[Rfam]
RNA: Cyanobacteria transfer-messenger RNA
RNA sequence: AUGCUAAUAUAUACAGUGUUCAAGAGGUUGCAAAGUCUGUUGUUCUGGACAGGGGUUCGAUUCCCCUCACUUCCAUUCUUGGGGGUGCCAUGGUUUCGACAGGGCAAAAAGGUUGUAAUUGUUGACGGAACAAAACCAUAGAUGCAAACACAUCUGAUUCCGCUGCGAAUAACAUCGUAGCAUUCUCCCGCAGCACCGUUGCUGCCUGAAUGGGAGAUGGGGGAUAAGUCUUCCUUCUAAUCCAACAGACUCUUUGGGGUGUGAUGCCCC
Numbered sequence: 001a002u003g004c005u006a007a008u009a010u011a012u013a014c015a016g017u018g019u020u021c022a023a024g025a026g027g028u029u030g031c032a033a034a035g036u037c038u039g040u041u042g043u044u045c046u047g048g049a050c051a052g053g054g055g056u057u058c059g060a061u062u063c064c065c066c067u068c069a070c071u072u073c074c075a076u077u078c079u080u081g082g083g084g085g086u087g088c089c090a091u092g093g094u095u096u097c098g099a100c101a102g103g104g105c106a107a108a109a110a111g112g113u114u115g116u117a118a119u120u121g122u123u124g125a126c127g128g129a130a131c132a133a134a135a136c137c138a139u140a141g142a143u144g145c146a147a148a149c150a151c152a153u154c155u156g157a158u159u160c161c162g163c164u165g166c167g168a169a170u171a172a173c174a175u176c177g178u179a180g181c182a183u184u185c186u187c188c189c190g191c192a193g194c195a196c197c198g199u200u201g202c203u204g205c206c207u208g209a210a211u212g213g214g215a216g217a218u219g220g221g222g223g224a225u226a227a228g229u230c231u232u233c234c235u236u237c238u239a240a241u242c243c244a245a246c247a248g249a250c251u252c253u254u255u256g257g258g259g260u261g262u263g264a265u266g267c268c269c270c
Stems, first nucleotide, its partner, number of pairs: 017022001026120003030116004037111002040107008051067005068087007191204005213243002217238001219237006256270006